[Rfam]
RNA sequence: UGGCUUUGUCCUAAGUCAAACCUUUCUCUAACUUUGACCUUGUUUUUAGAAAAAUAUGUUAACAUCUCGAGUUCAAAUAAAUGUAAUUUCAAAAUAUGUUUCAUGGAGAAUUUAAUGAAAGAAAUUUGAUGUUGUACAUGUUGGUGCGGUUUUCUAUAAACUUGCUCAAAGUUAAAGAAGUUUUGACUUGGGGCAAAGCCCA
Numbered sequence: 001u002g003g004c005u006u007u008g009u010c011c012u013a014a015g016u017c018a019a020a021c022c023u024u025u026c027u028c029u030a031a032c033u034u035u036g037a038c039c040u041u042g043u044u045u046u047u048a049g050a051a052a053a054a055u056a057u058g059u060u061a062a063c064a065u066c067u068c069g070a071g072u073u074c075a076a077a078u079a080a081a082u083g084u085a086a087u088u089u090c091a092a093a094a095u096a097u098g099u100u101u102c103a104u105g106g107a108g109a110a111u112u113u114a115a116u117g118a119a120a121g122a123a124a125u126u127u128g129a130u131g132u133u134g135u136a137c138a139u140g141u142u143g144g145u146g147c148g149g150u151u152u153u154c155u156a157u158a159a160a161c162u163u164g165c166u167c168a169a170a171g172u173u174a175a176a177g178a179a180g181u182u183u184u185g186a187c188u189u190g191g192g193g194c195a196a197a198g199c200c201c202a
Base pairs, nucleotide, nucleotide: 005197006196007195008194009193011191012190013189014188015187016186017185018184019183020182022180023179024178025177033170034169035168036167037166047156048155049154050153051152052151053150055149057146058145059144061142062141063140064139065138067136068134069133073129074128075127076126077125078124